Source information
The record is a 90-nucleotide sequence from Ananas comosus, which matches "Small nucleolar RNA Z155" in Rfam. The match comes from Rfam's covariance-model search (68 bits). Rfam 15.1 lists 429 matches to the family in 196 species. The organism belongs to Ananas, within Eukaryota. On this family, see Chen et al., Nucleic Acids Res 2003: "The high diversity of snoRNAs in plants: identification and comparative study of 120 snoRNA genes from Oryza sativa".
RNA sequence: CGUUGAUAUGAUGAUAAAGUUUCUCGGAAAUUUUUUCUAAAGAAUUAAUGUGUCGACAUGAAAAAUCAGACUACAAUUAUCUGAUCAACG
Numbered sequence: 001c002g003u004u005g006a007u008a009u010g011a012u013g014a015u016a017a018a019g020u021u022u023c024u025c026g027g028a029a030a031u032u033u034u035u036u037c038u039a040a041a042g043a044a045u046u047a048a049u050g051u052g053u054c055g056a057c058a059u060g061a062a063a064a065a066u067c068a069g070a071c072u073a074c075a076a077u078u079a080u081c082u083g084a085u086c087a088a089c090g
Stems, first nucleotide, its partner, number of pairs: 001090006